[Rfam]
RNA sequence: GUUGACCUUACAGCAAUUCAUUCUCUACAUAAAAAGAAAACCCCCUGUCAACUG
Numbered sequence: 001g002u003u004g005a006c007c008u009u010a011c012a013g014c015a016a017u018u019c020a021u022u023c024u025c026u027a028c029a030u031a032a033a034a035a036g037a038a039a040a041c042c043c044c045c046u047g048u049c050a051a052c053u054g
Stems, first nucleotide, its partner, number of pairs: 001052006

Annotation:
The record is a 54-nucleotide RNA sequence from Dictyostelium discoideum, which matches "Class I RNA from Dictyostelium" in Rfam. The base pairs follow the family's consensus structure, which is taken from published work. From the family's description: Dictyostelium Class I RNA was first reported for Aspegren et al. 2004 in Dictyostelium discoideum.